[Rfam]
RNA sequence: UGGGAGCUUGGUACGCAGACUGGGCUGUGGGACUGCUCUGGUUGUCCCUGUUCCUCCCUAGGGUAAACUGCCUGUGAUGACCAAGACUAACCCAGUUACAUCUGUAAUGGGCAGAUACGUGCAGACAGUU
Numbered sequence: 001u002g003g004g005a006g007c008u009u010g011g012u013a014c015g016c017a018g019a020c021u022g023g024g025c026u027g028u029g030g031g032a033c034u035g036c037u038c039u040g041g042u043u044g045u046c047c048c049u050g051u052u053c054c055u056c057c058c059u060a061g062g063g064u065a066a067a068c069u070g071c072c073u074g075u076g077a078u079g080a081c082c083a084a085g086a087c088u089a090a091c092c093c094a095g096u097u098a099c100a101u102c103u104g105u106a107a108u109g110g111g112c113a114g115a116u117a118c119g120u121g122c123a124g125a126c127a128g129u130u
Stems, first nucleotide, its partner, number of pairs: 002058005015045004022038004068124004073119001081110003086105002089101001
Shown here is a 130-nucleotide RNA from Vicugna pacos, a member of the family "Small Cajal body specific RNA 8". A reference for the family is Darzacq et al. (2002), "Cajal body-specific small nuclear RNAs: a novel class of 2'-O-methylation and pseudouridylation guide RNAs", EMBO J. Its family is annotated with RNA processing, nucleolus and Cajal body in the Gene Ontology. The family's consensus secondary structure is taken from published work. From the family's description: scaRNAs are a specific class of small nuclear RNAs which localise to the Cajal bodies and guide the modification of RNA polymerase II transcribed spliceosomal RNAs U1, U2, U4, U5 and U12. U92 belong to the H/ACA box class of guide RNAs as it has the predicted hairpin-hinge-hairpin-tail structure, conserved H/ACA-box motifs and is found associated with GAR1.